A member of the RNA family "L31-Actinobacteria ribosomal protein leader" from Streptomyces sp. adm13(2018), 48 nucleotides long. The organism belongs to Streptomyces, within Bacteria. It is annotated as a cis-regulatory leader.

Nucleotides: 048
Stems, first nucleotide, its partner, number of pairs: 003048003007044004015038003019034001021032001
Number, partner (000 for none) and nucleotide at each position: 001000u002000c003048g004047g005046c006000c007044c008043c009042g010041g011000u012000u013000c014000a015038c016037g017036c018000c019034u020000g021032c022000c023000g024000c025000g026000a027000c028000c029000u030000g031000c032021g033000g034019a035000a036017g037016c038015g039000a040000c041010c042009c043008g044007g045000a046005g047004c048003c